[Rfam]
RNA sequence: AAUAUCUCUCGGUAGGUGAGGUUACUCCAAGGAUAUGGAUUGCUGCCGUGAAAGGAUGGAGACACCCUGAACUGGUUAGCAGGUUUUGCCGAAAAAACAAGGCAUAACCUAACGCAAUUUCACGCCUUGAAGUGCCAAAACUUGAACGGGCAUCAGUGAAG
Numbered sequence: 001a002a003u004a005u006c007u008c009u010c011g012g013u014a015g016g017u018g019a020g021g022u023u024a025c026u027c028c029a030a031g032g033a034u035a036u037g038g039a040u041u042g043c044u045g046c047c048g049u050g051a052a053a054g055g056a057u058g059g060a061g062a063c064a065c066c067c068u069g070a071a072c073u074g075g076u077u078a079g080c081a082g083g084u085u086u087u088g089c090c091g092a093a094a095a096a097a098c099a100a101g102g103c104a105u106a107a108c109c110u111a112a113c114g115c116a117a118u119u120u121c122a123c124g125c126c127u128u129g130a131a132g133u134g135c136c137a138a139a140a141c142u143u144g145a146a147c148g149g150g151c152a153u154c155a156g157u158g159a160a161g
Stems, first nucleotide, its partner, number of pairs: 005159002008156002011147001013100001015142003020136003025132002028129005039118005046074001048072002054066002057064002082109004088103003
RNA: M-box riboswitch aptamer (ykoK leader)
Organism: Syntrophobotulus glycolicus